[Rfam]
RNA sequence: UACUAAGGGCGUGCGGUGAAUGCCUUGGCGCCAAGAGUCGAUGAAGGACGUGGUAAGCUGCGAUAAGCUUCGGGGAGCUGCAAACGAGCUUUGAUCCGGAGAUUUCCGAAUGGGGAAACCCACCCGGGGUCAUGCCUGGGUAUCCUGGACUGAAUACAUAGGUCCUGGAAGGCAACGUGGGGAAGUGAACCAUCUCAGUACCCACAGGAACAGAAAUCAAGAGAGAUUCCGCUAGUAGCGGCGAGCGAACGCGGACAUAGCCCAAACCAUCGUGCUUGCACGGUGGGGUUGUAGGGCCUGUCGGGCCGUGAGGCCGAAGAGUUACAAAACAGCAGGGUAGUCGAACAGGUCUGGAAUGCCUGGCCACAGAGGGUGAAAGCCCCGUAGGCGAAACCUUGGCUGUCUCUUUGGGCAGGUACCUGAGUACCGCGGGACACGAGGAAUCCCGUGGGAAUCUGCGAGGACCAUCUCGCAAGGCUAAAUACUCCUUGGCGACCGAUAGUGAACCAGUACCGUGAGGGAAAGGUGAAAAGCACCCCGUCGAGGGGAGUGAAAUAGUUCCUGAAACCGCAUGCCUACAAG
Numbered sequence: 001u002a003c004u005a006a007g008g009g010c011g012u013g014c015g016g017u018g019a020a021u022g023c024c025u026u027g028g029c030g031c032c033a034a035g036a037g038u039c040g041a042u043g044a045a046g047g048a049c050g051u052g053g054u055a056a057g058c059u060g061c062g063a064u065a066a067g068c069u070u071c072g073g074g075g076a077g078c079u080g081c082a083a084a085c086g087a088g089c090u091u092u093g094a095u096c097c098g099g100a101g102a103u104u105u106c107c108g109a110a111u112g113g114g115g116a117a118a119c120c121c122a123c124c125c126g127g128g129g130u131c132a133u134g135c136c137u138g139g140g141u142a143u144c145c146u147g148g149a150c151u152g153a154a155u156a157c158a159u160a161g162g163u164c165c166u167g168g169a170a171g172g173c174a175a176c177g178u179g180g181g182g183a184a185g186u187g188a189a190c191c192a193u194c195u196c197a198g199u200a201c202c203c204a205c206a207g208g209a210a211c212a213g214a215a216a217u218c219a220a221g222a223g224a225g226a227u228u229c230c231g232c233u234a235g236u237a238g239c240g241g242c243g244a245g246c247g248a249a250c251g252c253g254g255a256c257a258u259a260g261c262c263c264a265a266a267c268c269a270u271c272g273u274g275c276u277u278g279c280a281c282g283g284u285g286g287g288g289u290u291g292u293a294g295g296g297c298c299u300g301u302c303g304g305g306c307c308g309u310g311a312g313g314c315c316g317a318a319g320a321g322u323u324a325c326a327a328a329a330c331a332g333c334a335g336g337g338u339a340g341u342c343g344a345a346c347a348g349g350u351c352u353g354g355a356a357u358g359c360c361u362g363g364c365c366a367c368a369g370a371g372g373g374u375g376a377a378a379g380c381c382c383c384g385u386a387g388g389c390g391a392a393a394c395c396u397u398g399g400c401u402g403u404c405u406c407u408u409u410g411g412g413c414a415g416g417u418a419c420c421u422g423a424g425u426a427c428c429g430c431g432g433g434a435c436a437c438g439a440g441g442a443a444u445c446c447c448g449u450g451g452g453a454a455u456c457u458g459c460g461a462g463g464a465c466c467a468u469c470u471c472g473c474a475a476g477g478c479u480a481a482a483u484a485c486u487c488c489u490u491g492g493c494g495a496c497c498g499a500u501a502g503u504g505a506a507c508c509a510g511u512a513c514c515g516u517g518a519g520g521g522a523a524a525g526g527u528g529a530a531a532a533g534c535a536c537c538c539c540g541u542c543g544a545g546g547g548g549a550g551u552g553a554a555a556u557a558g559u560u561c562c563u564g565a566a567a568c569c570g571c572a573u574g575c576c577u578a579c580a581a582g
Stems, first nucleotide, its partner, number of pairs: 007577010022562001023526002027497002029494007036486002038172002046107003049062003068101007077089003112121003122141007143169003147165005176207001177205005187194002217224002227482001228255005238246002259479004267286007293421003298415005327405001329403005334397005340389003346362004351358001365369001371383003427451008458473005513520002536548004
Dot-bracket structure: ......((((((((((.....(((..(((((((((((((......((((((........))).....(((((((..(((.......))).....)))))))...)))....(((....)))(((((((......))))))).(((.(((((.........))))).))).))...((((((.....((....))......))))).).........((....))..((((((.....((.....))....)))))...((((....(((((((......)))))))......(((..(((((........................(.((((((((((.(((...((((.(......)))))..(...).(((.......)))...)))...))))).))))).).....)))))...))).....((((((((.........))))))))......(((((......)))))..))))..)..)).))))))).))...............((....))....)).........((((.....)))).............).....)))))))))).....
RNA: Bacterial large subunit ribosomal RNA, nucleotides 9 to 590